[Rfam]
RNA sequence: AACAUCCGACAGGGGAGCGCACACAGCGCUGAGAGUGCGGCCCGGCCCGCAGACCCUCGGACCUGAUCCGGUUAGUACCGGCGUAGGGAGUCAGCACCACCAUGAA
Numbered sequence: 001a002a003c004a005u006c007c008g009a010c011a012g013g014g015g016a017g018c019g020c021a022c023a024c025a026g027c028g029c030u031g032a033g034a035g036u037g038c039g040g041c042c043c044g045g046c047c048c049g050c051a052g053a054c055c056c057u058c059g060g061a062c063c064u065g066a067u068c069c070g071g072u073u074a075g076u077a078c079c080g081g082c083g084u085a086g087g088g089a090g091u092c093a094g095c096a097c098c099a100c101c102a103u104g105a106a
Stems, first nucleotide, its partner, number of pairs: 006094001008092003011057004017029004036051005062087004068081004

Rfam assigns this 106-nucleotide sequence from Streptomyces mashuensis to the family "TPP riboswitch aptamer (THI element)". The base pairs follow the family's consensus structure, which is taken from published work. It scores 70 bits against the family's covariance model. Gene Ontology term of the family: thiamine pyrophosphate binding. Lineage of the source: Bacteria > Bacillati > Actinomycetota > Kitasatosporales > Streptomyces.